[Rfam]
RNA sequence: GUAACAAAGAAGAAGCCAUCCGCUUCUCACCUUGCGGCUACGCUCGACAGGGUUGAAUACAGCGAUUCGCGCGGGUGGAUUUUGUUCCGCCCGCGUUUUCAUUUUUGU
Numbered sequence: 001g002u003a004a005c006a007a008a009g010a011a012g013a014a015g016c017c018a019u020c021c022g023c024u025u026c027u028c029a030c031c032u033u034g035c036g037g038c039u040a041c042g043c044u045c046g047a048c049a050g051g052g053u054u055g056a057a058u059a060c061a062g063c064g065a066u067u068c069g070c071g072c073g074g075g076u077g078g079a080u081u082u083u084g085u086u087c088c089g090c091c092c093g094c095g096u097u098u099u100c101a102u103u104u105u106u107g108u
Stems, first nucleotide, its partner, number of pairs: 011027006029053003035046002037043002070095010
RNA: Ribosomal protein L20 leader